[Rfam]
The family of this 102-nucleotide sequence from Sporosarcina sp. JAI121 is "Purine riboswitch aptamer".
RNA sequence: AGAAUAAGCCCAAGGUGCCCUCAUAUAUGUCCGAUAAUAUGGUUCGGAUGUUUCUACCAAGUUACCGGAAAUGACUUGACUAUGAAGGCGAAUUCAGUUCAA
Number, nucleotide and partner (000 for none) at each position: 001a000002g000003a000004a000005u000006a000007a000008g000009c000010c000011c000012a000013a000014g000015g000016u000017g000018c088019c087020c000021u085022c084023a083024u082025a081026u000027a000028u000029g049030u048031c047032c046033g045034a044035u000036a000037a000038u000039a000040u000041g000042g000043u000044u034045c033046g032047g031048a030049u029050g000051u000052u000053u000054c000055u000056a000057c000058c078059a077060a076061g075062u074063u073064a072065c000066c000067g000068g000069a000070a000071a000072u064073g063074a062075c061076u060077u059078g058079a000080c000081u025082a024083u023084g022085a021086a000087g019088g018089c000090g000091a000092a000093u000094u000095c000096a000097g000098u000099u000100c000101a000102a000